[Rfam]
RNA: Small nucleolar RNA SNORA9
RNA sequence: CCGCAAGCCUUCCAGCGUGGCGGGGCCUGCGGUGACCCCGGCCAUUCCUGCAGCGCUUGCCAGAGCAGCCCUGGGACGGUUUGAGGCCUCCCCCUGCCCCCCUCGGGGGGAGGCUAUAGAAAUCUCGGACACAC
Dot-bracket structure: ..((((((.........(((..(((.(......).)))...)))..........))))))...........(((((..........((((((.(((.......))).)))))).........))))).......